The record is a 273-nucleotide RNA sequence from Chordeiles acutipennis, which matches "RNase MRP" in Rfam. It is annotated as a ribozyme. The organism belongs to Chordeiles, within Eukaryota.
RNA sequence: GGAUGUUCUGAAGACCUGCUCGCUAGGCCACGCACGGAGGACACGGUUCCUCAUGGGCCCCGCGCCCGCCUAGGGGAAAGUCCCCGGACCGCCGGCAGAGAGUGCCGGGCGCCGCUGGCGCCCUGGCCCGCCCCCCAUCUCACGCGUUACCCCGCUGAGACGCCCUUGGGCCGAGCGGGUGAGCGGUGGGCGGGCGCUCGUCACGGCCACAGACACGCAGGUAGUGCGCAGGCGCACGCGCACCAACAGAACGGGGCUCACUCUCAGGCCAUC
Numbered sequence: 001g002g003a004u005g006u007u008c009u010g011a012a013g014a015c016c017u018g019c020u021c022g023c024u025a026g027g028c029c030a031c032g033c034a035c036g037g038a039g040g041a042c043a044c045g046g047u048u049c050c051u052c053a054u055g056g057g058c059c060c061c062g063c064g065c066c067c068g069c070c071u072a073g074g075g076g077a078a079a080g081u082c083c084c085c086g087g088a089c090c091g092c093c094g095g096c097a098g099a100g101a102g103u104g105c106c107g108g109g110c111g112c113c114g115c116u117g118g119c120g121c122c123c124u125g126g127c128c129c130g131c132c133c134c135c136c137a138u139c140u141c142a143c144g145c146g147u148u149a150c151c152c153c154g155c156u157g158a159g160a161c162g163c164c165c166u167u168g169g170g171c172c173g174a175g176c177g178g179g180u181g182a183g184c185g186g187u188g189g190g191c192g193g194g195c196g197c198u199c200g201u202c203a204c205g206g207c208c209a210c211a212g213a214c215a216c217g218c219a220g221g222u223a224g225u226g227c228g229c230a231g232g233c234g235c236a237c238g239c240g241c242a243c244c245a246a247c248a249g250a251a252c253g254g255g256g257c258u259c260a261c262u263c264u265c266a267g268g269c270c271a272u273c
Stems, first nucleotide, its partner, number of pairs: 002273004007268005014222006023073006037052005079258002082256004094106004107123006125195001127193001132190003136186001141183001143181001152178004162171003224243006
Dot-bracket structure: .((((.(((((..((((((...((((((........(((((......)))))...............)))))).....[[.[[[[........((((.....))))((((((.....)))))).(.(....(((.(....(.(........((((......(((....)))...))))..).)..).)))..).).....................)))))).((((((........)))))).........]]]]]].....))))).))))